Mammalian CPEB3 ribozyme: a 105-nucleotide RNA from Parnassius apollo. The match comes from Rfam's covariance-model search (42 bits).
RNA sequence: UAAAAUUUUCUGGGGGUCAUUGAGAAGCGUGCUCGUCGCGACCCCUGCCAGCCCUGCGUGCUCGUCGCGACCCCUGUCAGCCCUUUUCAGGGCUGCAAUUCUAUA
Numbered sequence: 001u002a003a004a005a006u007u008u009u010c011u012g013g014g015g016g017u018c019a020u021u022g023a024g025a026a027g028c029g030u031g032c033u034c035g036u037c038g039c040g041a042c043c044c045c046u047g048c049c050a051g052c053c054c055u056g057c058g059u060g061c062u063c064g065u066c067g068c069g070a071c072c073c074c075u076g077u078c079a080g081c082c083c084u085u086u087u088c089a090g091g092g093c094u095g096c097a098a099u100u101c102u103a104u105a
Stems, first nucleotide, its partner, number of pairs: 013074006021105002023102004027068003078095007